Source information:
Shown here is a 90-nucleotide RNA sequence from Diaphorina citri, a member of the family "Small nucleolar RNA R38".
[Rfam]
RNA sequence: UGUUCUAAUGAUGAUACAACAUAUUAUUACAGUUAUCCCUGUCAGACAUGGUAACAAUUCCAUGGUGUAAGAAAAUUAUCUGAUAGAACA
Numbered sequence: 001u002g003u004u005c006u007a008a009u010g011a012u013g014a015u016a017c018a019a020c021a022u023a024u025u026a027u028u029a030c031a032g033u034u035a036u037c038c039c040u041g042u043c044a045g046a047c048a049u050g051g052u053a054a055c056a057a058u059u060c061c062a063u064g065g066u067g068u069a070a071g072a073a074a075a076u077u078a079u080c081u082g083a084u085a086g087a088a089c090a
Stems, first nucleotide, its partner, number of pairs: 001090007
Description
The match comes from Rfam's covariance-model search (53 bits). About the family: snoR38 is a C/D box small nucleolar RNA conserved across yeast, human, Arabidopsis and rice. It is encoded in the intron of elongation factor-1 gamma in both pombe and cerevisiae. snoR38 guides the methylation of 2'-O-ribose sites in 28S rRNA. The family's RNA type in Rfam is C/D-box small nucleolar RNA. Pairs were carried over by alignment from the consensus structure, which was predicted with PFOLD. Rfam links the family to the GO terms RNA processing and nucleolus.